This 112-nucleotide sequence belongs to the Rfam family "FTHFS RNA". The family's RNA type in Rfam is cis-regulatory element. Rfam's curators put it in the seed alignment.

RNA sequence: UUCGGUACAUAAGUACCGAUUAAAUAUGCGGUGAGCCACUGCAACGGCAGCCGCAUAAAUCCUGUACGGGCCGAUCCACAGAAAACGGUAGGCGCCGACGAAUUACAAGGAG
Numbered sequence: 001u002u003c004g005g006u007a008c009a010u011a012a013g014u015a016c017c018g019a020u021u022a023a024a025u026a027u028g029c030g031g032u033g034a035g036c037c038a039c040u041g042c043a044a045c046g047g048c049a050g051c052c053g054c055a056u057a058a059a060u061c062c063u064g065u066a067c068g069g070g071c072c073g074a075u076c077c078a079c080a081g082a083a084a085a086c087g088g089u090a091g092g093c094g095c096c097g098a099c100g101a102a103u104u105a106c107a108a109g110g111a112g
Stems, first nucleotide, its partner, number of pairs: 002019007026056007035048003068096002070093003